[Rfam]
RNA: Makes More Granules Regulator RNA (mmgR)
RNA sequence: CGCACAUGCCCUCCUUGGGCGUUUCCUCCCUAGACUUGGGCCGUCCUUCAGUGGACGGCCCUUUUUUUUGCGCAGU
Numbered sequence: 001c002g003c004a005c006a007u008g009c010c011c012u013c014c015u016u017g018g019g020c021g022u023u024u025c026c027u028c029c030c031u032a033g034a035c036u037u038g039g040g041c042c043g044u045c046c047u048u049c050a051g052u053g054g055a056c057g058g059c060c061c062u063u064u065u066u067u068u069u070g071c072g073c074a075g076u
Stems, first nucleotide, its partner, number of pairs: 008020004038061009
Dot-bracket structure: .......((((.....)))).................(((((((((......)))))))))...............